[Rfam]
Bacterial large signal recognition particle RNA: a 266-nucleotide RNA sequence from Fervidicella metallireducens. By type it is a non-coding RNA gene. NCBI's taxonomy places the organism under Bacteria, Bacillati, Clostridia, Fervidicella, Fervidicella metallireducens. Rfam describes the family as follows. The signal recognition particle (SRP) is a universally conserved ribonucleoprotein involved in the co-translational targeting of proteins to membranes.
RNA sequence: CCGUGCUAGAUGGGGAGGUAGCGGUGCCCUGUAGCCUGCAAUCCGCUGUAGCAGGAUCGAAUUCCUUAUUUAGGUACUGGUAUGUAGGGUCUGACCUUGACAAGUGGUGUUGAAGAUUGGGUCCCGCGCAACGAAAAUUCAUGAACCUCGUCAGGUCCGGAAGGAAGCAGCGAUAAGUGAACCCUUUCGUGUGCCGUGGGGAUGCCUGGUCGGAGCUAACUGUCGAGGUAACGCCUGGAUAUCUAGCAUCGAUGUAAGGUGCACGG
Numbered sequence: 001c002c003g004u005g006c007u008a009g010a011u012g013g014g015g016a017g018g019u020a021g022c023g024g025u026g027c028c029c030u031g032u033a034g035c036c037u038g039c040a041a042u043c044c045g046c047u048g049u050a051g052c053a054g055g056a057u058c059g060a061a062u063u064c065c066u067u068a069u070u071u072a073g074g075u076a077c078u079g080g081u082a083u084g085u086a087g088g089g090u091c092u093g094a095c096c097u098u099g100a101c102a103a104g105u106g107g108u109g110u111u112g113a114a115g116a117u118u119g120g121g122u123c124c125c126g127c128g129c130a131a132c133g134a135a136a137a138u139u140c141a142u143g144a145a146c147c148u149c150g151u152c153a154g155g156u157c158c159g160g161a162a163g164g165a166a167g168c169a170g171c172g173a174u175a176a177g178u179g180a181a182c183c184c185u186u187u188c189g190u191g192u193g194c195c196g197u198g199g200g201g202a203u204g205c206c207u208g209g210u211c212g213g214a215g216c217u218a219a220c221u222g223u224c225g226a227g228g229u230a231a232c233g234c235c236u237g238g239a240u241a242u243c244u245a246g247c248a249u250c251g252a253u254g255u256a257a258g259g260u261g262c263a264c265g266g
Stems, first nucleotide, its partner, number of pairs: 001266006009058003012030004017025001019023001035055005064259006073250003077246001079243005085237004092230002096227006104220002106217003115211008123200006129191002132189005138181005148173004156165003